[Rfam]
Shown here is a 132-nucleotide RNA from Polypterus senegalus, a member of the family "Small Cajal body specific RNA 11". By type it is a small Cajal body RNA. scaRNAs are a specific class of small nuclear RNAs which localise to the Cajal bodies and guide the modification of RNA polymerase II transcribed spliceosomal RNAs U1, U2, U4, U5 and U12. ACA57 belongs to the H/ACA box class of guide RNAs as it has the predicted hairpin-hinge-hairpin-tail structure, conserved H/ACA-box motifs and is found associated with GAR1. ACA57 is predicted to guide the pseudouridylation of the U5 spliceosomal RNA at position U43. It scores 44 bits against the family's covariance model. Its family is annotated with nucleolus, RNA processing and Cajal body in the Gene Ontology.
RNA sequence: UUGUCUUACUCUUUAUCUGAGCCCUUGCUUUUAUUGCAUGGUGCUGCUAGGGAAGACAAAGAGAAACUCUGUCACUUAUAGGAGAUGUGUCCCAAGAGAUUGGACAUUGUCUUAAAGGCACGACAGUACAAA
Numbered sequence: 001u002u003g004u005c006u007u008a009c010u011c012u013u014u015a016u017c018u019g020a021g022c023c024c025u026u027g028c029u030u031u032u033a034u035u036g037c038a039u040g041g042u043g044c045u046g047c048u049a050g051g052g053a054a055g056a057c058a059a060a061g062a063g064a065a066a067c068u069c070u071g072u073c074a075c076u077u078a079u080a081g082g083a084g085a086u087g088u089g090u091c092c093c094a095a096g097a098g099a100u101u102g103g104a105c106a107u108u109g110u111c112u113u114a115a116a117g118g119c120a121c122g123a124c125a126g127u128a129c130a131a132a
Stems, first nucleotide, its partner, number of pairs: 001054002005051002020045002023041002026038003069126005076118002079116001082113006089105004094100001